[Rfam]
RNA sequence: AGACACCCUGUCCGGUAAAGUUUAGCCAACAGCCGGUACUUAGCCUUGGAGCCGAAGCCGUGAGGUGAGGUUUAAGCGUAGGCAUAGGAGUGUGAGAGCCAUAAGCCGAAAGGUUGAACGUGAUUGAGCCUCGUUAGUAUAAGGAUUGGGUGGUGAUGUUUUUCAUGUGACAGCAACCAGCAAGAAGCACUCGGAAAAGGCGAGAGUGCGGAGAACCCAACGGGGUCUGAGAGCA
Numbered sequence: 001a002g003a004c005a006c007c008c009u010g011u012c013c014g015g016u017a018a019a020g021u022u023u024a025g026c027c028a029a030c031a032g033c034c035g036g037u038a039c040u041u042a043g044c045c046u047u048g049g050a051g052c053c054g055a056a057g058c059c060g061u062g063a064g065g066u067g068a069g070g071u072u073u074a075a076g077c078g079u080a081g082g083c084a085u086a087g088g089a090g091u092g093u094g095a096g097a098g099c100c101a102u103a104a105g106c107c108g109a110a111a112g113g114u115u116g117a118a119c120g121u122g123a124u125u126g127a128g129c130c131u132c133g134u135u136a137g138u139a140u141a142a143g144g145a146u147u148g149g150g151u152g153g154u155g156a157u158g159u160u161u162u163u164c165a166u167g168u169g170a171c172a173g174c175a176a177c178c179a180g181c182a183a184g185a186a187g188c189a190c191u192c193g194g195a196a197a198a199g200g201c202g203a204g205a206g207u208g209c210g211g212a213g214a215a216c217c218c219a220a221c222g223g224g225g226u227c228u229g230a231g232a233g234c235a
Stems, first nucleotide, its partner, number of pairs: 012036004020030003023203001025201002039088003043083004047078002049073005056066001058065002125229001126227001128226006146220006152178003157172004187209006